[Rfam]
RNA sequence: UAUCCGGGACGACCCGGUUACUUUUGUUUGAAGCGGGACGACCCG
Numbered sequence: 001u002a003u004c005c006g007g008g009a010c011g012a013c014c015c016g017g018u019u020a021c022u023u024u025u026g027u028u029u030g031a032a033g034c035g036g037g038a039c040g041a042c043c044c045g
Stems, first nucleotide, its partner, number of pairs: 001020002004017005034045004
Rfam assigns this 45-nucleotide RNA from Catenovulum agarivorans to the family "Guanidine-II riboswitch aptamer (mini-ykkC)". It scores 42 bits against the family's covariance model. Simpler in structure and has fewer highly conserved nucleotide positions than the ykkC-yxkD leader. The organism belongs to Catenovulum agarivorans, within Bacteria.